[Rfam]
Nucleotides: 074
Stems, first nucleotide, its partner, number of pairs: 003072005010066003014062002018058005026051002029049004
Number, partner (000 for none) and nucleotide at each position: 001000u002000a003072a004071c005070u006069g007068a008000a009000c010066g011065g012064g013000a014062g015061a016000a017000g018058u019057u020056g021055u022054a023000c024000u025000g026051c027050u028000a029049u030048a031047u032046g033000u034000u035000a036000a037000u038000a039000g040000u041000g042000a043000a044000g045000u046032c047031a048030u049029a050027a051026g052000c053000g054022u055021a056020u057019a058018g059000c060000u061015u062014u063000u064012c065011c066010c067000c068007u069006u070005g071004g072003u073000u074000a
This 74-nucleotide RNA from Helicoverpa armigera belongs to the Rfam family "mir-965 microRNA precursor family".
The family has 16 seed sequences and 224 matches in Rfam 15.1.
The match comes from Rfam's covariance-model search (73 bits).
Gene Ontology terms of the family: RISC complex and miRNA-mediated post-transcriptional gene silencing.
The family's consensus secondary structure was predicted with RNAalifold.
The literature on the family includes a 2012 paper in Bioorg Khim by Huang et al., "The regulation of silkworm fibroin L chain production by miRNA-965 and miRNA-1926 in insect cells".